[Rfam]
RNA: mir-9229 microRNA precursor family
Organism: Cnephaeus nilssonii
RNA sequence: GAUACACUCUAUGGAGCAGGACUUGCUUCAGUGGGGCUUUCGUGCUCACUGAGUCUGCCCCUUGAGUGAGUCGCU
Number, nucleotide and partner (000 for none) at each position: 001g072002a071003u070004a000005c068006a000007c066008u065009c064010u000011a063012u000013g061014g060015a000016g058017c057018a056019g000020g055021a054022c053023u000024u000025g000026c000027u000028u052029c051030a050031g049032u048033g047034g046035g045036g043037c042038u000039u000040u000041c000042g037043u036044g000045c035046u034047c033048a032049c031050u030051g029052a028053g022054u021055c020056u018057g017058c016059c000060c014061c013062u000063u011064g009065a008066g007067u000068g005069a000070g003071u002072c001073g000074c000075u000